The family of this 70-nucleotide RNA sequence from Molossus molossus is "mir-10 microRNA precursor family". On this family, see Lee and Ambros, Science 2001: "An extensive class of small RNAs in Caenorhabditis elegans". The family has 36 seed sequences and 3,853 matches in Rfam 15.1. Gene Ontology terms of the family: RISC complex and miRNA-mediated post-transcriptional gene silencing.

[Rfam]
RNA sequence: UGCCACAAACCCGUAGAUCCGAACUUGUGGUGAUAGCCCACACAAGCUUGUGUCUGCGGGGAUGUGUCUG
Numbered sequence: 001u002g003c004c005a006c007a008a009a010c011c012c013g014u015a016g017a018u019c020c021g022a023a024c025u026u027g028u029g030g031u032g033a034u035a036g037c038c039c040a041c042a043c044a045a046g047c048u049u050g051u052g053u054c055u056g057c058g059g060g061g062a063u064g065u066g067u068c069u070g
Stems, first nucleotide, its partner, number of pairs: 002068001004066004010060003015055004020050003024046006
Dot-bracket structure: .(.((((..(((..((((.(((.((((((...........)))))).))).))))..)))..)))).)..